[Rfam]
RNA sequence: AUUAAAUAUUGCAUUUUAACUCGUAUAUCCCCUGAAUAUGGCAGGGAGUAUCUACCGGAAGCCGUAAAUUUCCGACUAUGAGUGAUUUAUAGCUAUGC
Dot-bracket structure: ..................(((((((....(((((.......))))).........((((((.......))))))..)))))))...............
Numbered sequence: 001a002u003u004a005a006a007u008a009u010u011g012c013a014u015u016u017u018a019a020c021u022c023g024u025a026u027a028u029c030c031c032c033u034g035a036a037u038a039u040g041g042c043a044g045g046g047a048g049u050a051u052c053u054a055c056c057g058g059a060a061g062c063c064g065u066a067a068a069u070u071u072c073c074g075a076c077u078a079u080g081a082g083u084g085a086u087u088u089a090u091a092g093c094u095a096u097g098c
Stems, first nucleotide, its partner, number of pairs: 019083007030046005056074006
Overview: Purine riboswitch aptamer: a 98-nucleotide RNA from Clostridiales bacterium oral taxon 876. Pairs were carried over by alignment from the consensus structure, which is taken from published work. Rfam links the family to the GO term purine nucleobase biosynthetic process.